[Rfam]
RNA sequence: CUUAAUUCUCAGGGCGGGGUGAAAUUCCCCACCGGCGGUGAUUCUUUAAGAUUUAAAGACAGCCCGCGAGCGCCUUUUCAAUCGGUGAAAAGGGACAGCAGAUCCGGUGAGACUCCGGAGCCGACGGUUAAAGUCCGGAUGAAAGAGAAUGAGA
Numbered sequence: 001c002u003u004a005a006u007u008c009u010c011a012g013g014g015c016g017g018g019g020u021g022a023a024a025u026u027c028c029c030c031a032c033c034g035g036c037g038g039u040g041a042u043u044c045u046u047u048a049a050g051a052u053u054u055a056a057a058g059a060c061a062g063c064c065c066g067c068g069a070g071c072g073c074c075u076u077u078u079c080a081a082u083c084g085g086u087g088a089a090a091a092g093g094g095a096c097a098g099c100a101g102a103u104c105c106g107g108u109g110a111g112a113c114u115c116c117g118g119a120g121c122c123g124a125c126g127g128u129u130a131a132a133g134u135c136c137g138g139a140u141g142a143a144a145g146a147g148a149a150u151g152a153g154a
Base pairs, nucleotide, nucleotide: 003152005150006149007148008147009146010145017029018028019027031134032133033123034122035067036066037065038064062121063120070099071098103119104118105117106116107115125137126136127135
This 154-nucleotide sequence from Maridesulfovibrio salexigens belongs to the Rfam family "FMN riboswitch aptamer (RFN element)".
A search with the family's covariance model found it, with a score of 121 bits.